Rfam assigns this 77-nucleotide RNA sequence from Glareola pratincola to the family "Small nucleolar RNA SNORD66". Rfam's curators write: snoRNA HBII-142 is part of the C/D family of snoRNAs. It is the human orthologue of the mouse MBII-142 snoRNA and is predicted to guide 2'O-ribose methylation of small 18S rRNA at residue C1272. Rfam classes the family as a C/D-box small nucleolar RNA. A reference for the family is Huttenhofer et al. (2001), "RNomics: an experimental approach that identifies 201 candidates for novel, small, non-messenger RNAs in mouse", EMBO J. The source organism's lineage runs through Eukaryota, Teleostomi, Archosauria, Neoaves and Glareola. Its family is annotated with nucleolus and RNA processing in the Gene Ontology. The family's consensus secondary structure was predicted with RNAalifold.

[Rfam]
RNA sequence: CUUCUGUGAUGAACUCUGCUUUGUGCCAUCGUGUCUGGGCCACUGAAGCUCUGUGAUGGUAAUGAGGAUCUGAGGGG
Numbered sequence: 001c002u003u004c005u006g007u008g009a010u011g012a013a014c015u016c017u018g019c020u021u022u023g024u025g026c027c028a029u030c031g032u033g034u035c036u037g038g039g040c041c042a043c044u045g046a047a048g049c050u051c052u053g054u055g056a057u058g059g060u061a062a063u064g065a066g067g068a069u070c071u072g073a074g075g076g077g
Stems, first nucleotide, its partner, number of pairs: 001077004